Shown here is a 99-nucleotide sequence from Desulfitobacterium metallireducens, a member of the family "SAM riboswitch aptamer (S box leader)". The match comes from Rfam's covariance-model search (78 bits). Taxonomically the source falls in Desulfitobacterium metallireducens (Bacteria, Bacillota, Desulfitobacteriaceae, Desulfitobacterium). Its Rfam clan is "SAM clan".
[Rfam]
RNA sequence: CUCUUAUCCAGAGUAGGUGGAGGGACUGGCCCGAUGAAACCCGGCAACCGGCAGUGAUGCACGGUGCUAAAUCCUGCAGGAAUAACUGGGAGAUGAGAG
Number, nucleotide and partner (000 for none) at each position: 001c099002u098003c097004u096005u095006a094007u093008c092009c000010a000011g000012a000013g042014u000015a000016g041017g040018u039019g000020g000021a000022g032023g031024g030025a000026c076027u000028g074029g073030c024031c023032c022033g000034a000035u000036g000037a000038a000039a018040c017041c016042c013043g068044g067045c066046a065047a000048c064049c063050g000051g060052c059053a058054g000055u000056g000057a000058u053059g052060c051061a000062c000063g049064g048065u046066g045067c044068u043069a000070a000071a000072u091073c029074c028075u000076g026077c088078a087079g086080g000081a000082a000083u000084a000085a000086c079087u078088g077089g000090g000091a072092g008093a007094u006095g005096a004097g003098a002099g001